A member of the RNA family "chrB-a RNA", 78 nucleotides long. The family's consensus secondary structure is taken from published work. The family's RNA type in Rfam is cis-regulatory element. Rfam 15.1 lists 347 matches to the family in 339 species.
RNA sequence: UUCACGGGGUUUAUCCGUGAUUGCCCCGUGAGGCUACGGCUGAAAGAUCGCGUCCCAGGCCGACAAGGGGACGCCAUG
Numbered sequence: 001u002u003c004a005c006g007g008g009g010u011u012u013a014u015c016c017g018u019g020a021u022u023g024c025c026c027c028g029u030g031a032g033g034c035u036a037c038g039g040c041u042g043a044a045a046g047a048u049c050g051c052g053u054c055c056c057a058g059g060c061c062g063a064c065a066a067g068g069g070g071a072c073g074c075c076a077u078g
Stems, first nucleotide, its partner, number of pairs: 005028006050074006